A member of the RNA family "Yersinia sRNA 276" from Erwinia sp. Leaf53, 195 nucleotides long.
[Rfam]
RNA sequence: CACCGACAUCAGCGACUCAUUCUGCGAGCCUUGGCCGACGGCGAGGUAGGCGUUCAUGCCCAGCUCUUUCAUCUGCUGCUCGCCGAUCACCCGGGUGGUGAUGUUCCUGCUGUAGGCGUCCGCCAGCUGGCGCGCCUGCGAGGCCAGAUACGCCGCGUUACAAAUAUUUGGCGGCAUAUUGCCGAGGUCUUUCGC
Numbered sequence: 001c002a003c004c005g006a007c008a009u010c011a012g013c014g015a016c017u018c019a020u021u022c023u024g025c026g027a028g029c030c031u032u033g034g035c036c037g038a039c040g041g042c043g044a045g046g047u048a049g050g051c052g053u054u055c056a057u058g059c060c061c062a063g064c065u066c067u068u069u070c071a072u073c074u075g076c077u078g079c080u081c082g083c084c085g086a087u088c089a090c091c092c093g094g095g096u097g098g099u100g101a102u103g104u105u106c107c108u109g110c111u112g113u114a115g116g117c118g119u120c121c122g123c124c125a126g127c128u129g130g131c132g133c134g135c136c137u138g139c140g141a142g143g144c145c146a147g148a149u150a151c152g153c154c155g156c157g158u159u160a161c162a163a164a165u166a167u168u169u170g171g172c173g174g175c176a177u178a179u180u181g182c183c184g185a186g187g188u189c190u191u192u193c194g195c
Base pairs, nucleotide, nucleotide: 005189006188007187012032014030016028017027018026020024034042035041050059051058062077063076064075078135079134081132082131083130084129085128087126092122093121094120095119096118097117099112100111102109103108137162138161140159141158143156144155167186168185169184170183171182172181

For this family Rfam cites "Transcriptomic profiling of Yersinia pseudotuberculosis reveals reprogramming of the Crp regulon by temperature and uncovers Crp as a master regulator of small RNAs" (Nuss et al., PLoS Genet, 2015). The family's RNA type in Rfam is antisense RNA.